[Rfam]
RNA sequence: UCUAACUUGGAGAACCCGGCCUCUUCCCGAAUGCUCUGAUGCCUCUUCCCCGGUAGCAGAUCGUCGGGGAGAGCCCUGGUUUUCCAAGAAUUUUUUC
Numbered sequence: 001u002c003u004a005a006c007u008u009g010g011a012g013a014a015c016c017c018g019g020c021c022u023c024u025u026c027c028c029g030a031a032u033g034c035u036c037u038g039a040u041g042c043c044u045c046u047u048c049c050c051c052g053g054u055a056g057c058a059g060a061u062c063g064u065c066g067g068g069g070a071g072a073g074c075c076c077u078g079g080u081u082u083u084c085c086a087a088g089a090a091u092u093u094u095u096u097c
Stems, first nucleotide, its partner, number of pairs: 010084007018076002021073010032063002035060004040055003
Record summary
mraW RNA: a 97-nucleotide RNA sequence from Varibaculum cambriense. Pairs were carried over by alignment from the consensus structure, which is taken from published work. Rfam classes the family as a cis-regulatory element. The organism belongs to Varibaculum cambriense, within Bacteria.